[Rfam]
RNA sequence: GUAAGACGCGCUAUUUUGUUGUCAUCACAUCCCUGAAAUUACACACGCAGAGAUGUAUUUCGGCCACCCCACCUUGGAGUGGCCUUUU
Number, nucleotide and partner (000 for none) at each position: 001g000002u000003a000004a000005g000006a000007c000008g000009c000010g000011c000012u000013a000014u000015u000016u000017u000018g000019u000020u000021g000022u000023c000024a000025u000026c000027a000028c055029a054030u053031c052032c000033c050034u049035g048036a000037a000038a000039u000040u000041a000042c000043a000044c000045a000046c000047g000048c035049a034050g033051a000052g031053a030054u029055g028056u000057a000058u000059u000060u000061c000062g084063g083064c082065c081066a080067c079068c000069c000070c000071a000072c000073c000074u000075u000076g000077g000078a000079g067080u066081g065082g064083c063084c062085u000086u000087u000088u000